[Rfam]
RNA: TPP riboswitch aptamer (THI element)
RNA sequence: UAGAUAGGCCAGGGGAGCUGGGAAAGAGGCCGGCUGAGAUAUAGACCCGGAAGUCUAUGACCCUUUAACCUGAUCUGGAUAAUGCCAGCGGAGGGAUACUGCAAGAACAAGAC
Numbered sequence: 001u002a003g004a005u006a007g008g009c010c011a012g013g014g015g016a017g018c019u020g021g022g023a024a025a026g027a028g029g030c031c032g033g034c035u036g037a038g039a040u041a042u043a044g045a046c047c048c049g050g051a052a053g054u055c056u057a058u059g060a061c062c063c064u065u066u067a068a069c070c071u072g073a074u075c076u077g078g079a080u081a082a083u084g085c086c087a088g089c090g091g092a093g094g095g096a097u098a099c100u101g102c103a104a105g106a107a108c109a110a111g112a113c
Stems, first nucleotide, its partner, number of pairs: 007100002011064004017034005041058005069094003075088004